Rfam assigns this 98-nucleotide sequence from Photobacterium proteolyticum to the family "TPP riboswitch aptamer (THI element)". The family's consensus secondary structure is taken from published work. Taxonomically the source falls in Photobacterium (Bacteria, Gammaproteobacteria, Vibrionales, Vibrionaceae).
RNA sequence: GUACGUUAGUCGGGGAGCCUUUGGCUGAGACCAUUUCGAUGGGACCCGUUGAACCUGAUCCAUUUAAUAAUGGCGUAGGGAACUAGCAACCGUGUCUC
Numbered sequence: 001g002u003a004c005g006u007u008a009g010u011c012g013g014g015g016a017g018c019c020u021u022u023g024g025c026u027g028a029g030a031c032c033a034u035u036u037c038g039a040u041g042g043g044a045c046c047c048g049u050u051g052a053a054c055c056u057g058a059u060c061c062a063u064u065u066a067a068u069a070a071u072g073g074c075g076u077a078g079g080g081a082a083c084u085a086g087c088a089a090c091c092g093u094g095u096c097u098c
Stems, first nucleotide, its partner, number of pairs: 006086005011048004017025003032041003054079004060073004
The match comes from Rfam's covariance-model search (69 bits). Rfam's curators write: Vitamin B(1) in its active form thiamin pyrophosphate (TPP) is an essential coenzyme that is synthesised by coupling of pyrimidine and thiazole moieties in bacteria. The previously detected thiamin-regulatory element, thi box was extended, resulting in a new, highly conserved RNA secondary structure, the THI element, which is widely distributed in eubacteria and also occurs in some archaea. Analysis of operon structures identified a large number of new candidate thiamin-regulated genes, mostly transporters, in various prokaryotic organisms.